[Rfam]
RNA sequence: UGUCUCCUCCACCGCCUCCAUGGUGGAUUCAACCCGAAGCUGCAAGGCUUCGGGUUUUUUUUC
Numbered sequence: 001u002g003u004c005u006c007c008u009c010c011a012c013c014g015c016c017u018c019c020a021u022g023g024u025g026g027a028u029u030c031a032a033c034c035c036g037a038a039g040c041u042g043c044a045a046g047g048c049u050u051c052g053g054g055u056u057u058u059u060u061u062u063c
Stems, first nucleotide, its partner, number of pairs: 008027007031056008

Betaproteobacteria toxic small RNA: a 63-nucleotide RNA sequence from Mitsuaria sp. WAJ17. Lineage of the source: Bacteria > Pseudomonadota > Betaproteobacteria > Burkholderiales > Roseateles. For this family Rfam cites "A vast collection of microbial genes that are toxic to bacteria" (Kimelman et al., Genome Res, 2012). From the family's description: Overexpression in amino aid rich medium attenuates growth, suggesting role in repressing amino acid intake and metabolism. It scores 59 bits against the family's covariance model. Pairs were carried over by alignment from the consensus structure, which was predicted with WAR.